[Rfam]
RNA: Plant small nucleolar RNA R71
RNA sequence: AGACCAUGAUGGGGGUAUUUUCUGAGCAACUCUUUCAAUCUCUCACAUGAUUCAUGCAUUAACUCUCCCGGGUGUUGGGAGAAUCCAGUUAUAGCUCUUCUCAUUUU
Numbered sequence: 001a002g003a004c005c006a007u008g009a010u011g012g013g014g015g016u017a018u019u020u021u022c023u024g025a026g027c028a029a030c031u032c033u034u035u036c037a038a039u040c041u042c043u044c045a046c047a048u049g050a051u052u053c054a055u056g057c058a059u060u061a062a063c064u065c066u067c068c069c070g071g072g073u074g075u076u077g078g079g080a081g082a083a084u085c086c087a088g089u090u091a092u093a094g095c096u097c098u099u100c101u102c103a104u105u106u107u
Stems, first nucleotide, its partner, number of pairs: 001107001003105001006101001057074002060071001
Dot-bracket structure: (.(..(..................................................((.(..........).))..........................)...).)